[Rfam]
RNA sequence: GAUAAUUCGAUGAAGAGGAUAAGUAGUUUUUAUUCUGGAUUCCACAGAGAGCCGGUGUAUGCUGAAAACCGGUGAACCAGAUAGAAAUGAACUCACCUCAGAGUGUUAGCUUGAAAGGUUUUUAACCGAUUAGAGCUAGCCGAGUGUUUUCACUCGUUACCAAAAAGAACAUUCUGUUCACUAGAGUGCAUACAUCUAUUUUUGAUGUAUGAAUGAGGGUGGUACCGUGGAAAGAAAAGACCUUUUCACCCCUUUG
Numbered sequence: 001g002a003u004a005a006u007u008c009g010a011u012g013a014a015g016a017g018g019a020u021a022a023g024u025a026g027u028u029u030u031u032a033u034u035c036u037g038g039a040u041u042c043c044a045c046a047g048a049g050a051g052c053c054g055g056u057g058u059a060u061g062c063u064g065a066a067a068a069c070c071g072g073u074g075a076a077c078c079a080g081a082u083a084g085a086a087a088u089g090a091a092c093u094c095a096c097c098u099c100a101g102a103g104u105g106u107u108a109g110c111u112u113g114a115a116a117g118g119u120u121u122u123u124a125a126c127c128g129a130u131u132a133g134a135g136c137u138a139g140c141c142g143a144g145u146g147u148u149u150u151c152a153c154u155c156g157u158u159a160c161c162a163a164a165a166a167g168a169a170c171a172u173u174c175u176g177u178u179c180a181c182u183a184g185a186g187u188g189c190a191u192a193c194a195u196c197u198a199u200u201u202u203u204g205a206u207g208u209a210u211g212a213a214u215g216a217g218g219g220u221g222g223u224a225c226c227g228u229g230g231a232a233a234g235a236a237a238a239g240a241c242c243u244u245u246u247c248a249c250c251c252c253u254u255u256g
Base pairs, nucleotide, nucleotide: 008103015099016098017097018096026088027087028086029085030084031083040076041075042074051073052072053071054070055069056068106139107138108137109136110135111134112133141156142155143154144153145152189211190210191209192208193207194206195205216253217252218251219250227249228248229247230246231245232244233243234242
RNA: T-box leader